A member of the RNA family "Listeria sRNA rli38" from Virgibacillus pantothenticus, 151 nucleotides long. NCBI's taxonomy places the organism under Bacteria, Bacillota, Bacilli, Caryophanales, Virgibacillus. For this family Rfam cites "The Listeria transcriptional landscape from saprophytism to virulence" (Toledo-Arana et al., Nature, 2009).
RNA sequence: GUUGAGUGGGAGUAAAGAGCUAACUUGAUUUGAAGUGGGAAUGCCUAUUUAACGGCAUUUGUCCUAAGCUAAAAUGAAGAAAAUGUAUUAAAAAUAAUAUAGUUCCCUACCAAAAACCCUACCAAGGAAAAAUUUUAGUAGGGAAUUUUGU
Number, nucleotide and partner (000 for none) at each position: 001g000002u000003u000004g000005a000006g000007u000008g107009g106010g105011a104012g103013u000014a000015a000016a000017g000018a000019g000020c000021u000022a000023a000024c000025u000026u000027g000028a000029u000030u000031u000032g000033a000034a000035g000036u000037g000038g000039g000040a000041a000042u000043g000044c000045c000046u000047a000048u000049u083050u082051a000052a000053c079054g000055g000056c000057a000058u072059u071060u000061g069062u068063c000064c000065u000066a000067a000068g062069c061070u000071a059072a058073a000074a000075u000076g000077a000078a000079g053080a000081a000082a050083a049084u000085g000086u096087a095088u094089u000090a000091a000092a000093a000094a088095u087096a086097a000098u000099a000100u000101a000102g000103u012104u011105c010106c009107c008108u000109a000110c000111c000112a000113a000114a147115a146116a000117c143118c142119c141120u140121a139122c138123c000124a136125a135126g134127g000128a000129a000130a000131a000132a000133u000134u126135u125136u124137a000138g122139u121140a120141g119142g118143g117144a000145a000146u115147u114148u000149u000150g000151u000